mir-2816 microRNA precursor family: a 73-nucleotide RNA from Bombyx mori.
The match comes from Rfam's covariance-model search (56 bits).
RNA sequence: CUCAACUCUAUCAGAGUGAGGUAGAGUCGAGUAUUGCGUCACCAUGACGUCAUCAGUUCGAGGAAAAUUUGAU
Numbered sequence: 001c002u003c004a005a006c007u008c009u010a011u012c013a014g015a016g017u018g019a020g021g022u023a024g025a026g027u028c029g030a031g032u033a034u035u036g037c038g039u040c041a042c043c044a045u046g047a048c049g050u051c052a053u054c055a056g057u058u059c060g061a062g063g064a065a066a067a068u069u070u071g072a073u
Base pairs, nucleotide, nucleotide: 002072003071004070005069009064011062014059015058016057017055018054019053021051026048027047028046029045031043
Gene Ontology terms of the family: RISC complex and miRNA-mediated post-transcriptional gene silencing.